Shown here is an 87-nucleotide RNA sequence from bacterium HR37, a member of the family "c-di-GMP-I riboswitch aptamer".
The match comes from Rfam's covariance-model search (59 bits).
[Rfam]
RNA sequence: CUACCGAAAGGGUGAACCAUCCGAAAGGGUGGGGAGCAAAGCCUUCUACCUAAGGGUUUGUGUGGCCUAUGGUAAGAGGUUGCCGAA
Numbered sequence: 001c002u003a004c005c006g007a008a009a010g011g012g013u014g015a016a017c018c019a020u021c022c023g024a025a026a027g028g029g030u031g032g033g034g035a036g037c038a039a040a041g042c043c044u045u046c047u048a049c050c051u052a053a054g055g056g057u058u059u060g061u062g063u064g065g066c067c068u069a070u071g072g073u074a075a076g077a078g079g080u081u082g083c084c085g086a087a
Stems, first nucleotide, its partner, number of pairs: 012037002017032006040081004045077003048073003055067004